[Rfam]
RNA sequence: UAAAAACACUAGGGGUGCUUUUUUAGCUGAGAGAGACAAUCUGUCUUAACCCUUUAACCUGCUCUAGGUAAUGCUAGCGAAGGGAAGUGGAGUAUAUAGGAC
Numbered sequence: 001u002a003a004a005a006a007c008a009c010u011a012g013g014g015g016u017g018c019u020u021u022u023u024u025a026g027c028u029g030a031g032a033g034a035g036a037c038a039a040u041c042u043g044u045c046u047u048a049a050c051c052c053u054u055u056a057a058c059c060u061g062c063u064c065u066a067g068g069u070a071a072u073g074c075u076a077g078c079g080a081a082g083g084g085a086a087g088u089g090g091a092g093u094a095u096a097u098a099g100g101a102c
Stems, first nucleotide, its partner, number of pairs: 007089004011053004017027003034046005058083003064077004
The record is a 102-nucleotide RNA sequence from Sutcliffiella cohnii, which matches "TPP riboswitch aptamer (THI element)" in Rfam. Pairs were carried over by alignment from the consensus structure, which is taken from published work.